The record is a 72-nucleotide RNA from Pseudomonas oryzae, which matches "narK RNA" in Rfam. By type it is a cis-regulatory element.
[Rfam]
RNA sequence: GGCACAGCGCUUGCUUUGCUCGAGUCAGCAGAACGCUCCAACGGCGGAGCCGUUCCCCGACAAUGGCGUCGU
Dot-bracket structure: ..................................(((((......)))))......................